[Rfam]
RNA sequence: GAACUUCUUACAGCUAUUAAAAUCAUCAAUUCAUGAAAACCCUCGAGUUCUG
Numbered sequence: 001g002a003a004c005u006u007c008u009u010a011c012a013g014c015u016a017u018u019a020a021a022a023u024c025a026u027c028a029a030u031u032c033a034u035g036a037a038a039a040c041c042c043u044c045g046a047g048u049u050c051u052g
Stems, first nucleotide, its partner, number of pairs: 001050006

Class I RNA from Dictyostelium: a 52-nucleotide RNA sequence from Tieghemostelium lacteum. Pairs were carried over by alignment from the consensus structure, which is taken from published work. Rfam's curators write: Dictyostelium Class I RNA was first reported for Aspegren et al. 2004 in Dictyostelium discoideum. Sucgang et al. 2011 identify putative homologs of Class I RNA in D. discoideum and D. purpureum. For this family Rfam cites "Novel non-coding RNAs in Dictyostelium discoideum and their expression during development" (Aspegren et al., Nucleic Acids Res, 2004).